[Rfam]
A member of the RNA family "Cyano-1 RNA" from Leptolyngbyaceae cyanobacterium LF-bin-369, 74 nucleotides long. The base pairs follow the family's consensus structure, which is taken from published work. It is annotated as a small RNA.

RNA sequence: AGAGGUGUGAGGAGCGAAUAAUAUAAAAAAGGUACCGAGACGAAACACGGCCAGUCGUCGGUGCCUUUUUUAUA
Numbered sequence: 001a002g003a004g005g006u007g008u009g010a011g012g013a014g015c016g017a018a019u020a021a022u023a024u025a026a027a028a029a030a031g032g033u034a035c036c037g038a039g040a041c042g043a044a045a046c047a048c049g050g051c052c053a054g055u056c057g058u059c060g061g062u063g064c065c066u067u068u069u070u071u072a073u074a
Stems, first nucleotide, its partner, number of pairs: 027069005034062005039056003